[Rfam]
RNA: mir-2060 microRNA precursor family
Organism: Branchiostoma floridae
RNA sequence: GUUAACCUGUAUGUGGAUGGUGCUCAGCACCAAGGACAGGCAUGUUUGACUGUAUGUGGAUGGUGUUCAGCACCAAGGACAGGCAUGUUUACCU
Numbered sequence: 001g002u003u004a005a006c007c008u009g010u011a012u013g014u015g016g017a018u019g020g021u022g023c024u025c026a027g028c029a030c031c032a033a034g035g036a037c038a039g040g041c042a043u044g045u046u047u048g049a050c051u052g053u054a055u056g057u058g059g060a061u062g063g064u065g066u067u068c069a070g071c072a073c074c075a076a077g078g079a080c081a082g083g084c085a086u087g088u089u090u091a092c093c094u
Base pairs, nucleotide, nucleotide: 006083007082008081009080010079018075019074020073021072022071023070024069026067027066028065029064030063031062032061034055036053037052038051039050041048042047